Rfam assigns this 98-nucleotide sequence from Roseomonas indoligenes to the family "Glycine riboswitch aptamer". Its family is annotated with glycine biosynthetic process in the Gene Ontology. Rfam 15.1 lists 9,425 matches to the family in 5,228 species. The match comes from Rfam's covariance-model search (49 bits).
[Rfam]
RNA sequence: CUCUGGAAAGCCCGGUGCCUGAGAGGGCACCGGCACCGACGGAGUAAGGCGACCCGCCUCACAGGGGGACGCCGAAUCUCUCAGGUCUCGGGACAGAG
Number, nucleotide and partner (000 for none) at each position: 001c098002u097003c096004u095005g094006g000007a000008a000009a000010g000011c000012c033013c032014g031015g030016u029017g028018c000019c000020u000021g000022a000023g000024a000025g000026g000027g000028c017029a016030c015031c014032g013033g012034c000035a086036c085037c084038g082039a081040c000041g000042g080043a079044g078045u000046a000047a000048g073049g072050c071051g070052a000053c000054c000055c000056g000057c000058c000059u000060c000061a000062c000063a000064g000065g000066g000067g000068g000069a000070c051071g050072c049073c048074g000075a000076a000077u000078c044079u043080c042081u039082c038083a000084g037085g036086u035087c000088u000089c000090g000091g000092g000093a000094c005095a004096g003097a002098g001